[Rfam]
The record is a 174-nucleotide RNA sequence from Zongyangia hominis, which matches "Ribosomal protein L10 leader" in Rfam. Taxonomically the source falls in Zongyangia (Bacteria, Clostridia, Eubacteriales, Oscillospiraceae).
RNA sequence: AUGAUAAUAAAGCUGUUUCCAAAGACAGCAGGUGUUCAAACAUAAUGGGUAUGCUACCCGCCUGCCGAGGACGCGCGAUCAAUGCAAAGAACGAAUGGCCAUGGGCCGUUUGUCCUGUAAUGUGAUUGAUAGCCCUUCCUGCGGCGACGUGGGAAGGGCUUUUUGUUUGGACCG
Numbered sequence: 001a002u003g004a005u006a007a008u009a010a011a012g013c014u015g016u017u018u019c020c021a022a023a024g025a026c027a028g029c030a031g032g033u034g035u036u037c038a039a040a041c042a043u044a045a046u047g048g049g050u051a052u053g054c055u056a057c058c059c060g061c062c063u064g065c066c067g068a069g070g071a072c073g074c075g076c077g078a079u080c081a082a083u084g085c086a087a088a089g090a091a092c093g094a095a096u097g098g099c100c101a102u103g104g105g106c107c108g109u110u111u112g113u114c115c116u117g118u119a120a121u122g123u124g125a126u127u128g129a130u131a132g133c134c135c136u137u138c139c140u141g142c143g144g145c146g147a148c149g150u151g152g153g154a155a156g157g158g159c160u161u162u163u164u165g166u167u168u169g170g171a172c173c174g
Base pairs, nucleotide, nucleotide: 028065029064030063031062032061033060034041035040132159133158134157135156136155137154138153139152140151141150142149143148
Dot-bracket structure: ...........................((((((((....))..................))))))..................................................................((((((((((((....))))))))))))...............